[Rfam]
RNA sequence: CAGAAAAGUUUAUUUGUGGUAGACUUUAAUAGGGGCAGUCAAAACCUGCCAACCCCUAGUAUCGGCCUUGCCGAUGCAACACCGCCAAAUUGCUGGAAAGUCCUGUUAUGCUGUUGGUACCGCUUGCAUGAGGAAACUUGUGCUUGCACCGUAGGGAAACCUGCGGGUAUGGUAACAAUCCAACAGAUAGGGGUAACCAGCAGCCAAGCCCUGACUGCAAUUUUGCAAAGGGUGCAGUUCACAGACUAAAUGCCGGUGGGUCUUUCGUUUGAGAGGCUUAAGAUAUAGUCGGACCCUACCGUGAGGUAGCC
Numbered sequence: 001c002a003g004a005a006a007a008g009u010u011u012a013u014u015u016g017u018g019g020u021a022g023a024c025u026u027u028a029a030u031a032g033g034g035g036c037a038g039u040c041a042a043a044a045c046c047u048g049c050c051a052a053c054c055c056c057u058a059g060u061a062u063c064g065g066c067c068u069u070g071c072c073g074a075u076g077c078a079a080c081a082c083c084g085c086c087a088a089a090u091u092g093c094u095g096g097a098a099a100g101u102c103c104u105g106u107u108a109u110g111c112u113g114u115u116g117g118u119a120c121c122g123c124u125u126g127c128a129u130g131a132g133g134a135a136a137c138u139u140g141u142g143c144u145u146g147c148a149c150c151g152u153a154g155g156g157a158a159a160c161c162u163g164c165g166g167g168u169a170u171g172g173u174a175a176c177a178a179u180c181c182a183a184c185a186g187a188u189a190g191g192g193g194u195a196a197c198c199a200g201c202a203g204c205c206a207a208g209c210c211c212u213g214a215c216u217g218c219a220a221u222u223u224u225g226c227a228a229a230g231g232g233u234g235c236a237g238u239u240c241a242c243a244g245a246c247u248a249a250a251u252g253c254c255g256g257u258g259g260g261u262c263u264u265u266c267g268u269u270u271g272a273g274a275g276g277c278u279u280a281a282g283a284u285a286u287a288g289u290c291g292g293a294c295c296c297u298a299c300c301g302u303g304a305g306g307u308a309g310c311c
Stems, first nucleotide, its partner, number of pairs: 005027009080258005086252002091202006101193004203238002208233004216227004242291001244290005260277007296309005
Record summary:
The family of this 311-nucleotide RNA sequence from Monoraphidium neglectum is "Group I catalytic intron". From the family's description: Group I catalytic introns are large self-splicing ribozymes. They catalyse their own excision from mRNA, tRNA and rRNA precursors in a wide range of organisms. The core secondary structure consists of 9 paired regions (P1-P9). NCBI's taxonomy places the organism under Eukaryota, Chlorophyta, core chlorophytes, Sphaeropleales, Monoraphidium. Rfam links the family to the GO term Group I intron splicing.